Rfam assigns this 107-nucleotide RNA from Limosilactobacillus ingluviei to the family "TPP riboswitch aptamer (THI element)". Taxonomically the source falls in Limosilactobacillus (Bacteria, Bacillati, Bacillota, Bacilli). Rfam describes the family as follows. Vitamin B(1) in its active form thiamin pyrophosphate (TPP) is an essential coenzyme that is synthesised by coupling of pyrimidine and thiazole moieties in bacteria. The previously detected thiamin-regulatory element, thi box was extended, resulting in a new, highly conserved RNA secondary structure, the THI element, which is widely distributed in eubacteria and also occurs in some archaea. The literature on the family includes a 2002 paper in J Biol Chem by Rodionov et al., "Comparative genomics of thiamin biosynthesis in procaryotes. New genes and regulatory mechanisms".

RNA sequence: UUUAAGUAACUGGAGUGCCCGUACGCCGGGCUGAGAUGUACGCAAACGUACGGAUCCAUUGAACCUGGGAGUUAAGACUCGCGAAGGGACGUUACCAAGCCGAUCAA
Numbered sequence: 001u002u003u004a005a006g007u008a009a010c011u012g013g014a015g016u017g018c019c020c021g022u023a024c025g026c027c028g029g030g031c032u033g034a035g036a037u038g039u040a041c042g043c044a045a046a047c048g049u050a051c052g053g054a055u056c057c058a059u060u061g062a063a064c065c066u067g068g069g070a071g072u073u074a075a076g077a078c079u080c081g082c083g084a085a086g087g088g089a090c091g092u093u094a095c096c097a098a099g100c101c102g103a104u105c106a107a
Base pairs, nucleotide, nucleotide: 006095007094008093009092010091011058012057013056014055016052017031018030019029020028021027038051039050040049041048042047064087065086066085069080070079071078